tRNA: a 74-nucleotide RNA from Candidatus Rhodoluna planktonica.
RNA sequence: GGCUGGGUAGCUCAGGUGGUUAGAGCACACGACUCAUAAUCGUGGGGUCGCGGGUUCGAGUCCCGCCCUAGCUA
Numbered sequence: 001g002g003c004u005g006g007g008u009a010g011c012u013c014a015g016g017u018g019g020u021u022a023g024a025g026c027a028c029a030c031g032a033c034u035c036a037u038a039a040u041c042g043u044g045g046g047g048u049c050g051c052g053g054g055u056u057c058g059a060g061u062c063c064c065g066c067c068c069u070a071g072c073u074a
Stems, first nucleotide, its partner, number of pairs: 001073007010026004028044005050066005
Dot-bracket structure: (((((((..((((.........)))).(((((.......))))).....(((((.......)))))))))))).
The source organism's lineage runs through Bacteria, Actinomycetota, Micrococcales, Microbacteriaceae and Rhodoluna. The family's RNA type in Rfam is transfer RNA. A search with the family's covariance model found it, with a score of 68 bits.